[Rfam]
RNA sequence: AAUUGAAAUGAUGACUAGAAUGCUUUGAUAGCUGAUAUGAUGGCUAUUUAUCAUGUAUUAGCUCUAGCUGAUCGUUC
Numbered sequence: 001a002a003u004u005g006a007a008a009u010g011a012u013g014a015c016u017a018g019a020a021u022g023c024u025u026u027g028a029u030a031g032c033u034g035a036u037a038u039g040a041u042g043g044c045u046a047u048u049u050a051u052c053a054u055g056u057a058u059u060a061g062c063u064c065u066a067g068c069u070g071a072u073c074g075u076u077c
Stems, first nucleotide, its partner, number of pairs: 002076001004074002027047001030045004
A member of the RNA family "Small nucleolar RNA Z102/R77" from Handroanthus impetiginosus, 77 nucleotides long. The base pairs follow the family's consensus structure, which was predicted with PFOLD. The organism belongs to Handroanthus, within Eukaryota. Clan: SNORD44 clan.